[Rfam]
The record is a 61-nucleotide sequence from Nitzschia inconspicua, which matches "Plastid-psbN 5UTR RNA" in Rfam. The literature on the family includes a 2023 paper in Plant Commun by Richter et al., "Retrograde signaling in plants: A critical review focusing on the GUN pathway and beyond". Plastid psbN is a non-coding RNA (ncRNA) recognised in plastids. It was reported as a conserved 11 stem-loop in the prime untranslated region (5UTR) of psbN genes. It has been reported that the motif is retained in a subset of mature transcripts in barley, which can suggests a possible role in transcript alternative 5 prime processing. By type it is a cis-regulatory element.
RNA sequence: UACUACACCCAUAAUUGGAGUCGUACCCCAACCUGGCGCAACUUUACCAUAUUCAGCAUUU
Numbered sequence: 001u002a003c004u005a006c007a008c009c010c011a012u013a014a015u016u017g018g019a020g021u022c023g024u025a026c027c028c029c030a031a032c033c034u035g036g037c038g039c040a041a042c043u044u045u046a047c048c049a050u051a052u053u054c055a056g057c058a059u060u061u
Base pairs, nucleotide, nucleotide: 017045018044019043020042021041023039024038026036027035